[Rfam]
RNA sequence: GAGAUUUAAUGACGGCGUUGGACCAAAGUCCAUCCGGGACCGUGCAAUGCCUGAUGUCUGGUAGUGUC
Numbered sequence: 001g002a003g004a005u006u007u008a009a010u011g012a013c014g015g016c017g018u019u020g021g022a023c024c025a026a027a028g029u030c031c032a033u034c035c036g037g038g039a040c041c042g043u044g045c046a047a048u049g050c051c052u053g054a055u056g057u058c059u060g061g062u063a064g065u066g067u068c
Base pairs, nucleotide, nucleotide: 001068002067004065005064014051015050016049017048018047019046020045022043023042029039030038031037